The record is a 116-nucleotide RNA sequence from Metabacillus arenae, which matches "PyrR binding site" in Rfam.
This family represents the PyrR binding site and terminator structure.

RNA sequence: ACACCUUUUAACGAAGUACAGAGAGGCUUCAAAGGGUGUAAAAGGAAGACGAGGAAGAUGAUAGCUUCGUUCUCCUUUUAUACGCCCUGAGCCGACUGUCAGGGCAUUUUUUUACU
Numbered sequence: 001a002c003a004c005c006u007u008u009u010a011a012c013g014a015a016g017u018a019c020a021g022a023g024a025g026g027c028u029u030c031a032a033a034g035g036g037u038g039u040a041a042a043a044g045g046a047a048g049a050c051g052a053g054g055a056a057g058a059u060g061a062u063a064g065c066u067u068c069g070u071u072c073u074c075c076u077u078u079u080a081u082a083c084g085c086c087c088u089g090a091g092c093c094g095a096c097u098g099u100c101a102g103g104g105c106a107u108u109u110u111u112u113u114a115c116u
Stems, first nucleotide, its partner, number of pairs: 004035005013030005044075003048071007057062001080109001082107001084105007